[Rfam]
RNA sequence: AGGCAGCCUCCUUGCCCUAACCAUGGCAGAUGGAGGUGUUUAACUGCUCGGAAAUAAAACGAUGCUUUUGCUCUUCAGAUUUGCUGAGGUUAUCCCUUGAAGCUGGUCUAGUAAGCCUUAGCACAUU
Numbered sequence: 001a002g003g004c005a006g007c008c009u010c011c012u013u014g015c016c017c018u019a020a021c022c023a024u025g026g027c028a029g030a031u032g033g034a035g036g037u038g039u040u041u042a043a044c045u046g047c048u049c050g051g052a053a054a055u056a057a058a059a060c061g062a063u064g065c066u067u068u069u070g071c072u073c074u075u076c077a078g079a080u081u082u083g084c085u086g087a088g089g090u091u092a093u094c095c096c097u098u099g100a101a102g103c104u105g106g107u108c109u110a111g112u113a114a115g116c117c118u119u120a121g122c123a124c125a126u127u
Base pairs, nucleotide, nucleotide: 002040003039004038005037007036008035009033010032012030013029014027015026016025065121066120070116071115072114077109078108079107080106081105083103084102085101088095089094
RNA: Small nucleolar RNA snoR77
Organism: Hibiscus syriacus